[Rfam]
RNA sequence: GAUGCGAUGAUGAGACAAAAGCACGAAGAGUGUAAGAAGAGCAGUGGACGAUUAUGAAUUCUGUAAAAGGAUUUGUAAUUGACGUGAGCUUUCAAUUAAACGACUUCUCCUUCCACUGAGCAUU
Dot-bracket structure: (((((..................................................................................................................)))))
Description: The family of this 124-nucleotide RNA from Microthlaspi erraticum is "Small nucleolar RNA Z152/R70/R12/". The family's RNA type in Rfam is C/D-box small nucleolar RNA. Its family is annotated with RNA processing and nucleolus in the Gene Ontology. A reference for the family is Barneche et al. (2001), "Identification of 66 box C/D snoRNAs in Arabidopsis thaliana: extensive gene duplications generated multiple isoforms predicting new ribosomal RNA 2'-O-methylation sites", J Mol Biol.